RNA sequence: CUGUACUUUCGGCUUCUUUACAGUGCUGCCUUGUGACAUGAAGAUCAAGCAGCAUUGUACAGGGCUAUGAAAGCUCAG
Numbered sequence: 001c002u003g004u005a006c007u008u009u010c011g012g013c014u015u016c017u018u019u020a021c022a023g024u025g026c027u028g029c030c031u032u033g034u035g036a037c038a039u040g041a042a043g044a045u046c047a048a049g050c051a052g053c054a055u056u057g058u059a060c061a062g063g064g065c066u067a068u069g070a071a072a073g074c075u076c077a078g
Base pairs, nucleotide, nucleotide: 014064015063016062017061019059020058021057022056023055024054025053026052027051028050030049031048032047033046

The record is a 78-nucleotide RNA from Chiloscyllium punctatum, which matches "mir-103/107 microRNA precursor family" in Rfam. Taxonomically the source falls in Chiloscyllium (Eukaryota, Deuterostomia, Chondrichthyes, Galeoidea). On this family, see Mourelatos et al., Genes Dev 2002: "miRNPs: a novel class of ribonucleoproteins containing numerous microRNAs". Rfam's curators write: This family consists of the mammalian microRNA (miRNA) precursors mir-103 and mir107. Animal miRNAs are transcribed as ~70nt precursors and subsequently processed by the Dicer enzyme to give a ~22nt product. In this case the mature sequence comes from the 3' arm of the precursor.